[Rfam]
RNA sequence: CAGUUAAAGGGUUCGUAGUCUGAGCGGAACGAGGGGUGUGACGGGUCCCAGCUCAAGGGGGACAUAGCACCGCGAUGCCGCGGAACAAGGAGCGUCUAGGGGCCAGGGUAUUAAGCGACGAGGGGUGAAAUCUGGUGACUCGCUUAGGAGCAACAGAGGCGAAAGCGCUGGCCAGGGGCGAGUCCGAUGAUAAAGGACGUAGGCUAGAGGAUCGAAGACGAUUAGAGACCGUUGUAGUUCUAGCAGUAAACGAUGCCGAUGCCGUGGUGCCGCAAGGCGACGCGGAAGAGAAAUUGAGUAGGGCCCUGGGGAGAGUACACGCGCAAGCGAGAAAUUUAAAGGAAAU
Numbered sequence: 001c002a003g004u005u006a007a008a009g010g011g012u013u014c015g016u017a018g019u020c021u022g023a024g025c026g027g028a029a030c031g032a033g034g035g036g037u038g039u040g041a042c043g044g045g046u047c048c049c050a051g052c053u054c055a056a057g058g059g060g061g062a063c064a065u066a067g068c069a070c071c072g073c074g075a076u077g078c079c080g081c082g083g084a085a086c087a088a089g090g091a092g093c094g095u096c097u098a099g100g101g102g103c104c105a106g107g108g109u110a111u112u113a114a115g116c117g118a119c120g121a122g123g124g125g126u127g128a129a130a131u132c133u134g135g136u137g138a139c140u141c142g143c144u145u146a147g148g149a150g151c152a153a154c155a156g157a158g159g160c161g162a163a164a165g166c167g168c169u170g171g172c173c174a175g176g177g178g179c180g181a182g183u184c185c186g187a188u189g190a191u192a193a194a195g196g197a198c199g200u201a202g203g204c205u206a207g208a209g210g211a212u213c214g215a216a217g218a219c220g221a222u223u224a225g226a227g228a229c230c231g232u233u234g235u236a237g238u239u240c241u242a243g244c245a246g247u248a249a250a251c252g253a254u255g256c257c258g259a260u261g262c263c264g265u266g267g268u269g270c271c272g273c274a275a276g277g278c279g280a281c282g283c284g285g286a287a288g289a290g291a292a293a294u295u296g297a298g299u300a301g302g303g304c305c306c307u308g309g310g311g312a313g314a315g316u317a318c319a320c321g322c323g324c325a326a327g328c329g330a331g332a333a334a335u336u337u338a339a340a341g342g343a344a345a346u
Base pairs, nucleotide, nucleotide: 001308002307003306011198012197013196014195018191019190020189089185090184091183093180094179095178096177097176101173102172103171104170105169106168107151111147112146113145114144115143116142117141118140122133123132124131159166160165203244204243205242206241207240208239213237217233218232219231220230255304256303257302259299260298262285263284264283265282266281268279269278270277271276288295289294310337311336312335320329321328322327